Bacterial RNase P class A: a 370-nucleotide RNA from Allochromatium vinosum.
[Rfam]
RNA sequence: GGAGUUGGCCAGGCAGUCGCUCUUUCCAUUCGGAAGGGGAGGAAAGUCCGGGCUCCAUCGGGCAGGGUGCCAGGUAACACCUGGGGGAUGUGAGUCCACGGAAAGUGCCACAGAAAAGAUACCGCCGGUUCGGGCUCCGCUCGCGCCGGUAAGGGUGAAAAGGUGCGGUAAGAGCGCACCGCGCUGGUGGCAACAUCAGUGGCAGGGUAAACCCCACCCGGAGCAAGACCAAAUAGAGGAACAAGCCGCCACGAGCGGCAGCGCGCGGCCCGCGCGUGUUCCUGGGUAGGUCGCACGAGGCGUGCGGUGACGCGCGUCCCAGAUGAAUGACUGUCCUCGACAGAACCCGGCUUAUCGGCCAACUCCUUAG
Numbered sequence: 001g002g003a004g005u006u007g008g009c010c011a012g013g014c015a016g017u018c019g020c021u022c023u024u025u026c027c028a029u030u031c032g033g034a035a036g037g038g039g040a041g042g043a044a045a046g047u048c049c050g051g052g053c054u055c056c057a058u059c060g061g062g063c064a065g066g067g068u069g070c071c072a073g074g075u076a077a078c079a080c081c082u083g084g085g086g087g088a089u090g091u092g093a094g095u096c097c098a099c100g101g102a103a104a105g106u107g108c109c110a111c112a113g114a115a116a117a118g119a120u121a122c123c124g125c126c127g128g129u130u131c132g133g134g135c136u137c138c139g140c141u142c143g144c145g146c147c148g149g150u151a152a153g154g155g156u157g158a159a160a161a162g163g164u165g166c167g168g169u170a171a172g173a174g175c176g177c178a179c180c181g182c183g184c185u186g187g188u189g190g191c192a193a194c195a196u197c198a199g200u201g202g203c204a205g206g207g208u209a210a211a212c213c214c215c216a217c218c219c220g221g222a223g224c225a226a227g228a229c230c231a232a233a234u235a236g237a238g239g240a241a242c243a244a245g246c247c248g249c250c251a252c253g254a255g256c257g258g259c260a261g262c263g264c265g266c267g268g269c270c271c272g273c274g275c276g277u278g279u280u281c282c283u284g285g286g287u288a289g290g291u292c293g294c295a296c297g298a299g300g301c302g303u304g305c306g307g308u309g310a311c312g313c314g315c316g317u318c319c320c321a322g323a324u325g326a327a328u329g330a331c332u333g334u335c336c337u338c339g340a341c342a343g344a345a346c347c348c349g350g351c352u353u354a355u356c357g358g359c360c361a362a363c364u365c366c367u368u369a370g
Base pairs, nucleotide, nucleotide: 001366002365003364004363005362006361007360008359009358010357011355012335013334014333015332016331017330018329020039021038022037023036024035025034026033027032044353045352046351048350049349050348051347052346053223054222055221056220060271061270062269063268065219066218067217068216069215070084071083072082073081074080085099086097087096088095089094100214101213105212106211107208108207109206122154123153124150125149126148127147128146129145131143132142133141134140162180163179164178165177166176167175181203182201183200184199185198186197187196188195189194227292228291229290230289237283238282239281240280241279242278262276263275264274265273266272299318300317301316302315303314304313305312306311

Notes: A search with the family's covariance model found it, with a score of 336 bits. It is annotated as a ribozyme. NCBI's taxonomy places the organism under Bacteria, Pseudomonadati, Chromatiaceae, Allochromatium, Allochromatium vinosum.